[Rfam]
RNA sequence: AUGUGCCUGGGGUGUUCGACAUAACUGCUAUUUUGAACCUACAAAUUUUAUUCGGGAUGCCUACUAUUGCUGUUAGGAAGUCAAGCCUUGUAGUUGACCGUUCUGGUAGACUGAGGAACAGUUGCGGUGACCCACCUAGCUGUGGCUAGGCGUCAAAAUUGCAGGGAACGGCAUUUUGGGUAUGUA
Numbered sequence: 001a002u003g004u005g006c007c008u009g010g011g012g013u014g015u016u017c018g019a020c021a022u023a024a025c026u027g028c029u030a031u032u033u034u035g036a037a038c039c040u041a042c043a044a045a046u047u048u049u050a051u052u053c054g055g056g057a058u059g060c061c062u063a064c065u066a067u068u069g070c071u072g073u074u075a076g077g078a079a080g081u082c083a084a085g086c087c088u089u090g091u092a093g094u095u096g097a098c099c100g101u102u103c104u105g106g107u108a109g110a111c112u113g114a115g116g117a118a119c120a121g122u123u124g125c126g127g128u129g130a131c132c133c134a135c136c137u138a139g140c141u142g143u144g145g146c147u148a149g150g151c152g153u154c155a156a157a158a159u160u161g162c163a164g165g166g167a168a169c170g171g172c173a174u175u176u177u178g179g180g181u182a183u184g185u186a
Base pairs, nucleotide, nucleotide: 002184003183004182005181006180007179008178009177010176011175012174013173014172015171017170018169030159031158032157033156034155035154036153038150039149054133055132056131058129059128060127061126069122070121071120072119073118074117081110082109086106087105